[Rfam]
RNA sequence: AUUGAGUGGGAAUAAGAAGCUAACUUAACUUGAAGAGGGAACACCGAUUUAUAAGGAUUUAACAUUGUUAAAAAUGGAUAAAAACCAUAUAAAAUAAUAUAGUUCCCUACCAAAAACCCUACCAAGAAAAAAUUUUGGUAGGGUUUUUGGA
Numbered sequence: 001a002u003u004g005a006g007u008g009g010g011a012a013u014a015a016g017a018a019g020c021u022a023a024c025u026u027a028a029c030u031u032g033a034a035g036a037g038g039g040a041a042c043a044c045c046g047a048u049u050u051a052u053a054a055g056g057a058u059u060u061a062a063c064a065u066u067g068u069u070a071a072a073a074a075u076g077g078a079u080a081a082a083a084a085c086c087a088u089a090u091a092a093a094a095u096a097a098u099a100u101a102g103u104u105c106c107c108u109a110c111c112a113a114a115a116a117c118c119c120u121a122c123c124a125a126g127a128a129a130a131a132a133u134u135u136u137g138g139u140a141g142g143g144u145u146u147u148u149g150g151a
Base pairs, nucleotide, nucleotide: 008107009106010105011104012103049084050083052081054079058072059071060070061069062068087095088094114147115146116145117143118142119141120140121139122138123137124136125135126134